Small nucleolar RNA SNORA44: a 129-nucleotide RNA from Myotis davidii. Rfam 15.1 lists 1,056 matches to the family in 599 species. By type it is an H/ACA-box small nucleolar RNA. The literature on the family includes a 2001 paper in EMBO J by Huttenhofer et al., "RNomics: an experimental approach that identifies 201 candidates for novel, small, non-messenger RNAs in mouse". Gene Ontology terms of the family: nucleolus and RNA processing. Clan: SNORA44 clan.

[Rfam]
RNA sequence: CAGGGUCAUUUGAGAGUUAAGUUAAAUGAGUACUAGUGCACUCCAACUGCAUGCAAGAGCAACCUGGAGAGACUUUAACAGCUCAGAUCAGCAUAAUACCUGCAGCUGCCACUUGCCUUGCCUGUAUCU
Numbered sequence: 001c002a003g004g005g006u007c008a009u010u011u012g013a014g015a016g017u018u019a020a021g022u023u024a025a026a027u028g029a030g031u032a033c034u035a036g037u038g039c040a041c042u043c044c045a046a047c048u049g050c051a052u053g054c055a056a057g058a059g060c061a062a063c064c065u066g067g068a069g070a071g072a073c074u075u076u077a078a079c080a081g082c083u084c085a086g087a088u089c090a091g092c093a094u095a096a097u098a099c100c101u102g103c104a105g106c107u108g109c110c111a112c113u114u115g116c117c118u119u120g121c122c123u124g125u126a127u128c129u
Stems, first nucleotide, its partner, number of pairs: 001036001005033002009029002066122002069119003081109002084102003